[Rfam]
RNA sequence: UCAAAAGUAAAUAUUGUUUUUCAUAUAAUCGUGGGGAUAUGGCCUACAAGUUUCUACCGGUUUACCGUAAAUAAACUGACUAUGAGAAGCGAGAAUUAGAUA
Numbered sequence: 001u002c003a004a005a006a007g008u009a010a011a012u013a014u015u016g017u018u019u020u021u022c023a024u025a026u027a028a029u030c031g032u033g034g035g036g037a038u039a040u041g042g043c044c045u046a047c048a049a050g051u052u053u054c055u056a057c058c059g060g061u062u063u064a065c066c067g068u069a070a071a072u073a074a075a076c077u078g079a080c081u082a083u084g085a086g087a088a089g090c091g092a093g094a095a096u097u098a099g100a101u102a
Base pairs, nucleotide, nucleotide: 018088019087020086021085022084023083024082025081029049031047032046033045034044035043058078059077060076061075062074063073064072